[Rfam]
RNA sequence: GGGCGGACCCCGCCGAACCGCGCCGCCUGAUGGUCGCGCGGACCGGGGACCCAUCGAUCCCCUGGGGUGAAUCGCGCCUGCGUUCGGGGACGCAGCGCGCGUAGGGCGACUUCCGGCCCGAACCCGUCAGCUAACUCGGUAGGCGGUCGCGAAGAACGGA
Numbered sequence: 001g002g003g004c005g006g007a008c009c010c011c012g013c014c015g016a017a018c019c020g021c022g023c024c025g026c027c028u029g030a031u032g033g034u035c036g037c038g039c040g041g042a043c044c045g046g047g048g049a050c051c052c053a054u055c056g057a058u059c060c061c062c063u064g065g066g067g068u069g070a071a072u073c074g075c076g077c078c079u080g081c082g083u084u085c086g087g088g089g090a091c092g093c094a095g096c097g098c099g100c101g102u103a104g105g106g107c108g109a110c111u112u113c114c115g116g117c118c119c120g121a122a123c124c125c126g127u128c129a130g131c132u133a134a135c136u137c138g139g140u141a142g143g144c145g146g147u148c149g150c151g152a153a154g155a156a157c158g159g160a
Base pairs, nucleotide, nucleotide: 011145012144013143014142018041019040020039021038022037023036042140043139044138045137046136047135052064053063065125066124067123073101074100075099076098104119105118106117107116
A member of the RNA family "c-di-AMP riboswitch aptamer (ydaO/yuaA leader)" from Blastococcus sp. CT_GayMR20, 160 nucleotides long. It scores 71 bits against the family's covariance model. On this family, see Barrick et al., Proc Natl Acad Sci U S A 2004: "New RNA motifs suggest an expanded scope for riboswitches in bacterial genetic control". Rfam's curators write: This family represents a conserved RNA structure found upstream of the ydaO and yuaA genes in Bacillus subtilis and related genes in other bacteria.